Description:
The record is a 98-nucleotide sequence from Castor canadensis, which matches "Vault RNA" in Rfam. On this family, see Stadler et al., Mol Biol Evol 2009: "Evolution of Vault RNAs". The source organism's lineage runs through Eukaryota, Tetrapoda, Eutheria, Rodentia and Castor. Rfam 15.1 lists 2,873 matches to the family in 431 species. It is annotated as a non-coding RNA gene. The match comes from Rfam's covariance-model search (80 bits).
RNA sequence: GGACUGGCUCUAGCUCAGCGGUUCCUUCGUACAAACUUCACCAACCACUUACCCACUCGUGGGUGGUUCGAGACCCGCGGGCGCUUUCCAGUCCUAUU
Numbered sequence: 001g002g003a004c005u006g007g008c009u010c011u012a013g014c015u016c017a018g019c020g021g022u023u024c025c026u027u028c029g030u031a032c033a034a035a036c037u038u039c040a041c042c043a044a045c046c047a048c049u050u051a052c053c054c055a056c057u058c059g060u061g062g063g064u065g066g067u068u069c070g071a072g073a074c075c076c077g078c079g080g081g082c083g084c085u086u087u088c089c090a091g092u093c094c095u096a097u098u
Base pairs, nucleotide, nucleotide: 002093003092004091005090006089007088013082014081015080016079018078019077020076021075026072027071028070029069